[Rfam]
This 86-nucleotide RNA from Blastocystis hominis belongs to the Rfam family "Selenocysteine transfer RNA".
The organism belongs to Blastocystis, within Eukaryota.
A reference for the family is Mizutani and Goto (2000), "Eukaryotic selenocysteine tRNA has the 9/4 secondary structure", FEBS Lett.
A search with the family's covariance model found it, with a score of 71 bits.

RNA sequence: GCAGGACUGAGCCCAGCUGGUGUUGGGUGCGGACUUCAAAUCCGUAGGGGAGUAACUGCCCAGCAGUUCGAUUCUGCCUGACCUGC
Numbered sequence: 001g002c003a004g005g006a007c008u009g010a011g012c013c014c015a016g017c018u019g020g021u022g023u024u025g026g027g028u029g030c031g032g033a034c035u036u037c038a039a040a041u042c043c044g045u046a047g048g049g050g051a052g053u054a055a056c057u058g059c060c061c062a063g064c065a066g067u068u069c070g071a072u073u074c075u076g077c078c079u080g081a082c083c084u085g086c
Base pairs, nucleotide, nucleotide: 001086002085003084004083005082007080009078012027013026014025015024016023017022028046029045030044031043032042033041048061049060050059052057063077064076065075066074